Group II catalytic intron D1-D4-3: a 167-nucleotide RNA from Xylanibacillus composti.
[Rfam]
RNA sequence: UCGGUCGCGAGGCCGAAUCUGAAGGAAGCCAGAGGCAAACCCUCGGUCUGACGAACAGAAAUCACAUAGAAGGCAUGAUGAGACGGACGAGCUUGCAACACAAAGCAAAGUCCAAUACUGCCCGAAUCUCAUCAUGUAGAUACUCAACUAAUGAGUAGCCUCCUAUC
Numbered sequence: 001u002c003g004g005u006c007g008c009g010a011g012g013c014c015g016a017a018u019c020u021g022a023a024g025g026a027a028g029c030c031a032g033a034g035g036c037a038a039a040c041c042c043u044c045g046g047u048c049u050g051a052c053g054a055a056c057a058g059a060a061a062u063c064a065c066a067u068a069g070a071a072g073g074c075a076u077g078a079u080g081a082g083a084c085g086g087a088c089g090a091g092c093u094u095g096c097a098a099c100a101c102a103a104a105g106c107a108a109a110g111u112c113c114a115a116u117a118c119u120g121c122c123c124g125a126a127u128c129u130c131a132u133c134a135u136g137u138a139g140a141u142a143c144u145c146a147a148c149u150a151a152u153g154a155g156u157a158g159c160c161u162c163c164u165a166u167c
Base pairs, nucleotide, nucleotide: 001016002015003014004013005012006011028167031164032163035159036158042155043154044153045152046149049146050145066141067140073137074136075135077133078132079131080130081129082128083127085113086112087111088110091106092105093104094103